[Rfam]
RNA sequence: ACGUGAACUACAGCAGCUGCUGGACACUGCACAAGAUCAGACAUGUAAAUUCUCUUGUGCGUGUGACAGCGGCUAUUGUGAAUCACUAACUGCAUCGA
Numbered sequence: 001a002c003g004u005g006a007a008c009u010a011c012a013g014c015a016g017c018u019g020c021u022g023g024a025c026a027c028u029g030c031a032c033a034a035g036a037u038c039a040g041a042c043a044u045g046u047a048a049a050u051u052c053u054c055u056u057g058u059g060c061g062u063g064u065g066a067c068a069g070c071g072g073c074u075a076u077u078g079u080g081a082a083u084c085a086c087u088a089a090c091u092g093c094a095u096c097g098a
Base pairs, nucleotide, nucleotide: 005084006083009080010079011078012077015074016073017072018071019070020069021068022067025063026062028061029060030059031058032057033056035054036053